[Rfam]
Description:
This 53-nucleotide sequence belongs to the Rfam family "Na+ riboswitch aptamer (DUF1646)". On this family, see White et al., Nat Chem Biol 2022: "Na(+) riboswitches regulate genes for diverse physiological processes in bacteria". Gene Ontology terms of the family: sodium ion binding and regulation of gene expression.
RNA sequence: GGUUGGGCGAAAUAAUUUCGUUUCAAGAGACUUGGCUUUUAGGGUGGAAAGCU
Numbered sequence: 001g002g003u004u005g006g007g008c009g010a011a012a013u014a015a016u017u018u019c020g021u022u023u024c025a026a027g028a029g030a031c032u033u034g035g036c037u038u039u040u041a042g043g044g045u046g047g048a049a050a051g052c053u
Base pairs, nucleotide, nucleotide: 003026004025005024006022007021008020009019010018011017034053035052036051037050038049039048040047